[Rfam]
RNA sequence: CGAGAUAACUCUCUCUAAGGAACUCGGCAAAAUGGCCCCGUAACUUCGGAAGAAGGGGUGCCCACCUCAGACGUGGGUCGCAGUGAAGAGAUCCAGGCGACUGUUUACCAAAAACACAGGUCUCCGCCAAGUCGAACGACGAAGUAUGGGGGCUGACGCCUGCCCAGUGCCGGAAGGUUAAGGAAGUCGGUCAGGGCGCAAGCCUGAAGCUGGCGACCGAAGCCCCGGUGAACGGCGGCCGUAACUAUAACGGUCCUAAGGUAGCGAAAUUCCUUGUCGGGUAAGUUCCGACCCGCACGAAAGGCGUAACGAUCUGGAUGGUGUCUCAGAGAGAGACUCG
Numbered sequence: 001c002g003a004g005a006u007a008a009c010u011c012u013c014u015c016u017a018a019g020g021a022a023c024u025c026g027g028c029a030a031a032a033u034g035g036c037c038c039c040g041u042a043a044c045u046u047c048g049g050a051a052g053a054a055g056g057g058g059u060g061c062c063c064a065c066c067u068c069a070g071a072c073g074u075g076g077g078u079c080g081c082a083g084u085g086a087a088g089a090g091a092u093c094c095a096g097g098c099g100a101c102u103g104u105u106u107a108c109c110a111a112a113a114a115c116a117c118a119g120g121u122c123u124c125c126g127c128c129a130a131g132u133c134g135a136a137c138g139a140c141g142a143a144g145u146a147u148g149g150g151g152g153c154u155g156a157c158g159c160c161u162g163c164c165c166a167g168u169g170c171c172g173g174a175a176g177g178u179u180a181a182g183g184a185a186g187u188c189g190g191u192c193a194g195g196g197c198g199c200a201a202g203c204c205u206g207a208a209g210c211u212g213g214c215g216a217c218c219g220a221a222g223c224c225c226c227g228g229u230g231a232a233c234g235g236c237g238g239c240c241g242u243a244a245c246u247a248u249a250a251c252g253g254u255c256c257u258a259a260g261g262u263a264g265c266g267a268a269a270u271u272c273c274u275u276g277u278c279g280g281g282u283a284a285g286u287u288c289c290g291a292c293c294c295g296c297a298c299g300a301a302a303g304g305c306g307u308a309a310c311g312a313u314c315u316g317g318a319u320g321g322u323g324u325c326u327c328a329g330a331g332a333g334a335g336a337c338u339c340g
Stems, first nucleotide, its partner, number of pairs: 001340004009335008018326003035059005044049001060078006067071001079083001091319007098311002102116003119154008127144001131140003157306004162236003167233002169229005176224003182218002186214006194205004237255006256260001266293001276292006
RNA: Bacterial large subunit ribosomal RNA, nucleotides 1654 to 1993